RNA: Small nucleolar RNA SNORA84
RNA sequence: GCCCUGUGGUUGCUGGAUGCUGUUGUGCAGGUACAGCUCUCCAGUGGAUUCUAAUGGGCUAGAGCAAUACUGUGAUAUAUGCAUGGGAGCUGUUCCUUCUCAACAGCUGCCAUAGCCCGGUCACUGGUACAUAG
Dot-bracket structure: ((((...(.((((((((.(((((.........)))))..)))))))).)......))))..........(.(((((....((((((.(((((((.......))))))).)))).))...))))).)........